The record is a 143-nucleotide RNA sequence from Trichonephila clavata, which matches "Small nucleolar RNA SNORA79" in Rfam. By type it is an H/ACA-box small nucleolar RNA. From the family's description: ACA65 (SNORA79) is a member of the H/ACA class of snoRNAs that guide the sites of modification of uridines to pseudouridines. This snoRNA was identified by computational screening and its expression in mouse experimentally verified by Northern blot and primer extension analysis. The source organism's lineage runs through Eukaryota, Eumetazoa, Arachnida, Nephilidae and Trichonephila. On this family, see Schattner et al., RNA 2006: "A computational screen for mammalian pseudouridylation guide H/ACA RNAs".
[Rfam]
Nucleotides: 143
Base pairs, nucleotide, nucleotide: 001055002054003053004052005051006050008048015041016040017039018038020036021035022034023033066135067134068133070131071130078123079122080121081120082119084116085115086114087113091106092105093104094103095102
Number, partner (000 for none) and nucleotide at each position: 001055u002054g003053a004052u005051g006050g007000g008048u009000a010000u011000u012000c013000c014000a015041c016040a017039u018038c019000c020036u021035u022034u023033u024000u025000g026000g027000a028000g029000u030000u031000a032000u033023g034022a035021a036020a037000g038018g039017g040016u041015g042000a043000u044000u045000u046000u047000a048008g049000a050006c051005c052004a053003u054002c055001a056000u057000a058000a059000a060000a061000u062000a063000a064000u065000g066135g067134a068133a069000u070131c071130a072000c073000u074000u075000c076000a077000c078123c079122c080121a081120u082119g083000u084116u085115a086114a087113c088000u089000u090000u091106g092105c093104a094103a095102g096000u097000g098000u099000u100000u101000a102095c103094u104093u105092g106091u107000a108000u109000u110000g111000u112000a113087g114086u115085u116084a117000u118000c119082u120081a121080u122079g123078g124000u125000u126000u127000u128000g129000c130071u131070g132000u133068u134067u135066c136000c137000u138000a139000c140000a141000c142000u143000u